[Rfam]
RNA sequence: GCGGUUCUUCAGGAGCCUGCCAAGGUUCACCAGCGGUGCUGCCACCGCCCUCCUUAAGUGGAUCGGCCCUUGGAGGCUCCUGAAGAACCGC
Numbered sequence: 001g002c003g004g005u006u007c008u009u010c011a012g013g014a015g016c017c018u019g020c021c022a023a024g025g026u027u028c029a030c031c032a033g034c035g036g037u038g039c040u041g042c043c044a045c046c047g048c049c050c051u052c053c054u055u056a057a058g059u060g061g062a063u064c065g066g067c068c069c070u071u072g073g074a075g076g077c078u079c080c081u082g083a084a085g086a087a088c089c090g091c
Base pairs, nucleotide, nucleotide: 001091002090003089004088005087006086007085008084009083010082011081012080013079014078015077016076017075018074020073021072022071023070024069025068030066031065033048034047035046036045037044038043051062052061053060
This 91-nucleotide RNA sequence from Propioniferax innocua belongs to the Rfam family "DUF3800-IV RNA". Lineage of the source: Bacteria > Bacillati > Propionibacteriales > Propionibacteriaceae > Propioniferax. A search with the family's covariance model found it, with a score of 94 bits.